[Rfam]
RNA sequence: UGUGAUAAGGGCAAACUAACCGAAAGGUUAGGACGCAAAGUCGUAAGCCGUAAGGAAUUAUUUCCAGGUAGUUAGACUGCAAUCA
Numbered sequence: 001u002g003u004g005a006u007a008a009g010g011g012c013a014a015a016c017u018a019a020c021c022g023a024a025a026g027g028u029u030a031g032g033a034c035g036c037a038a039a040g041u042c043g044u045a046a047g048c049c050g051u052a053a054g055g056a057a058u059u060a061u062u063u064c065c066a067g068g069u070a071g072u073u074a075g076a077c078u079g080c081a082a083u084c085a
Base pairs, nucleotide, nucleotide: 001085003082011036012035016031017030018029019028020027021026034071039078040077041076042075044074045073046072047069048068049067